This 349-nucleotide RNA from Phrynocephalus forsythii belongs to the Rfam family "Nuclear RNase P". The match comes from Rfam's covariance-model search (147 bits). NCBI's taxonomy places the organism under Eukaryota, Chordata, Vertebrata, Unidentata, Phrynocephalus. From the family's description: Ribonuclease P (RNase P) is a ubiquitous endoribonuclease, found in archaea, bacteria and eukarya as well as chloroplasts and mitochondria.

[Rfam]
RNA sequence: GCUGAUAGGAAGCUCUCCGUAGAGGCCACGUGCUGGGUGCGCGUCACCCGAGGAGAAGCGCCUCUGGGAAGGUCUGAGAGAAGGGACGCCCAACCCACCCUAGCAGGGGGCCGCCUUCUGAAGGCGGCUGAGUUCCCUGCAAUGUGGGGCCUCCAGCCGAGCCCCCCUGAUUGGAGCAAAAGAAGCAGGAAGAGAGGCGGGCCUUCCCCGGCCUUCAUCUCCUGCGGAUGCUUCCGUGGCUGGCUGGAGGUUUGGGAACGACUCACGGCCGGCGUCCAUGAGUAGUACAAUGGGCAGAGGAGAAGCCGGAUCCACUUCAUAACCCAAUUCAGACUAGUCUCCGCCCAGC
Numbered sequence: 001g002c003u004g005a006u007a008g009g010a011a012g013c014u015c016u017c018c019g020u021a022g023a024g025g026c027c028a029c030g031u032g033c034u035g036g037g038u039g040c041g042c043g044u045c046a047c048c049c050g051a052g053g054a055g056a057a058g059c060g061c062c063u064c065u066g067g068g069a070a071g072g073u074c075u076g077a078g079a080g081a082a083g084g085g086a087c088g089c090c091c092a093a094c095c096c097a098c099c100c101u102a103g104c105a106g107g108g109g110g111c112c113g114c115c116u117u118c119u120g121a122a123g124g125c126g127g128c129u130g131a132g133u134u135c136c137c138u139g140c141a142a143u144g145u146g147g148g149g150c151c152u153c154c155a156g157c158c159g160a161g162c163c164c165c166c167c168u169g170a171u172u173g174g175a176g177c178a179a180a181a182g183a184a185g186c187a188g189g190a191a192g193a194g195a196g197g198c199g200g201g202c203c204u205u206c207c208c209c210g211g212c213c214u215u216c217a218u219c220u221c222c223u224g225c226g227g228a229u230g231c232u233u234c235c236g237u238g239g240c241u242g243g244c245u246g247g248a249g250g251u252u253u254g255g256g257a258a259c260g261a262c263u264c265a266c267g268g269c270c271g272g273c274g275u276c277c278a279u280g281a282g283u284a285g286u287a288c289a290a291u292g293g294g295c296a297g298a299g300g301a302g303a304a305g306c307c308g309g310a311u312c313c314a315c316u317u318c319a320u321a322a323c324c325c326a327a328u329u330c331a332g333a334c335u336a337g338u339c340u341c342c343g344c345c346c347a348g349c
Base pairs, nucleotide, nucleotide: 001349002348003347004346008342009341010340013299014298015297016296017294018293021065022064023063024062025061035049036048037047038046039045074332075331076330077329078328084270085269087267096110098108099107100106111127112126113125114124115123116122129265130264131263132262133261134260149251150250151249152248153247154246155245156244157243158242159241300320302318303317304316305315